Overview: Shown here is a 60-nucleotide RNA from Candidatus Paraburkholderia kirkii, a member of the family "Betaproteobacteria toxic small RNA". The literature on the family includes a 2012 paper in Genome Res by Kimelman et al., "A vast collection of microbial genes that are toxic to bacteria". The family has 51 seed sequences and 951 matches in Rfam 15.1. Rfam describes the family as follows. Overexpression in amino aid rich medium attenuates growth, suggesting role in repressing amino acid intake and metabolism.

RNA sequence: UGUCUCCUCCAUAUCUCCACUGAUAUGGAUUCAGCCCGCCAGCAUUGGGGGCUUUUUUUC
Numbered sequence: 001u002g003u004c005u006c007c008u009c010c011a012u013a014u015c016u017c018c019a020c021u022g023a024u025a026u027g028g029a030u031u032c033a034g035c036c037c038g039c040c041a042g043c044a045u046u047g048g049g050g051g052c053u054u055u056u057u058u059u060c
Base pairs, nucleotide, nucleotide: 008029009028010027011026012025013024014023015022033053034052035051036050037049039047